mir-8834 microRNA precursor family: a 105-nucleotide RNA sequence from Nyctereutes procyonoides.

RNA sequence: AGGAGGAACAGCCGCAGUUGCUAUGGCAACUCUGGAAGCCUGGAGUCAGCUCCCGCAGUAACUCCGGAGCUCUCCGUCCGCAGGGCCUGGAGGCUCCGGGGCGGG
Numbered sequence: 001a002g003g004a005g006g007a008a009c010a011g012c013c014g015c016a017g018u019u020g021c022u023a024u025g026g027c028a029a030c031u032c033u034g035g036a037a038g039c040c041u042g043g044a045g046u047c048a049g050c051u052c053c054c055g056c057a058g059u060a061a062c063u064c065c066g067g068a069g070c071u072c073u074c075c076g077u078c079c080g081c082a083g084g085g086c087c088u089g090g091a092g093g094c095u096c097c098g099g100g101g102c103g104g105g
Base pairs, nucleotide, nucleotide: 002097003096004095005094009089010088011087012085013084020077021076025072028071030069031068032067033066034065035064036063040058041057042056